[Rfam]
RNA sequence: CAAGUUAUAACAAUUCUGCCUAAGACUCAGGUGACGUAAGUCUUAAAUAUGCCUGCCGAGGAGUAAUCGAAUCUCUCUCUGUGUCUUGGUGUGGACAUAGAGCUUUUUUAUUAAAAAA
Dot-bracket structure: ...........................((((((((....)))........))))).....................(((((((((........)))))))))................
Numbered sequence: 001c002a003a004g005u006u007a008u009a010a011c012a013a014u015u016c017u018g019c020c021u022a023a024g025a026c027u028c029a030g031g032u033g034a035c036g037u038a039a040g041u042c043u044u045a046a047a048u049a050u051g052c053c054u055g056c057c058g059a060g061g062a063g064u065a066a067u068c069g070a071a072u073c074u075c076u077c078u079c080u081g082u083g084u085c086u087u088g089g090u091g092u093g094g095a096c097a098u099a100g101a102g103c104u105u106u107u108u109u110a111u112u113a114a115a116a117a118a
Stems, first nucleotide, its partner, number of pairs: 028055005033042003077102009
Overview: This 118-nucleotide RNA sequence from Ligilactobacillus hayakitensis belongs to the Rfam family "Ribosomal protein L10 leader". The family's consensus secondary structure was predicted with CMfinder. This family is a putative r-protein leader autoregulatory structure found in B. subtilis and other low-GC Gram-positive bacteria. It is annotated as a cis-regulatory leader.